[Rfam]
RNA: Cyano-1 RNA
Organism: Calothrix sp. C42_A2020_038
RNA sequence: UUGUGUGUGAGGAGUAAGUUGAGAACGAAAAGCGCCUGGAGUGGAAACACGGUAACACUUCCAGGCGCUUUUUGCC
Dot-bracket structure: ............................(((((..((((((((............))).)))))..))))).....
Numbered sequence: 001u002u003g004u005g006u007g008u009g010a011g012g013a014g015u016a017a018g019u020u021g022a023g024a025a026c027g028a029a030a031a032g033c034g035c036c037u038g039g040a041g042u043g044g045a046a047a048c049a050c051g052g053u054a055a056c057a058c059u060u061c062c063a064g065g066c067g068c069u070u071u072u073u074g075c076c
Stems, first nucleotide, its partner, number of pairs: 029071005036064005041058003